[Rfam]
RNA sequence: GACCCUACCUCGGGGUGCGUGAGAAAUCGCGCUGAGAUGCCAUGUGGCGGACCCGUUGAACCUGAACCGGCUAACACCGGCGGAGGAAAGGUACUGGUUUCACCC
Numbered sequence: 001g002a003c004c005c006u007a008c009c010u011c012g013g014g015g016u017g018c019g020u021g022a023g024a025a026a027u028c029g030c031g032c033u034g035a036g037a038u039g040c041c042a043u044g045u046g047g048c049g050g051a052c053c054c055g056u057u058g059a060a061c062c063u064g065a066a067c068c069g070g071c072u073a074a075c076a077c078c079g080g081c082g083g084a085g086g087a088a089a090g091g092u093a094c095u096g097g098u099u100u101c102a103c104c105c
Base pairs, nucleotide, nucleotide: 006093007092008091009090010089011055012054013053014052016049017032018031019030020029021028039048040047041046061086062085063084067080068079069078070077

Description: This 105-nucleotide RNA sequence from Rhodobacteraceae bacterium HTCC2150 belongs to the Rfam family "TPP riboswitch aptamer (THI element)". It scores 76 bits against the family's covariance model.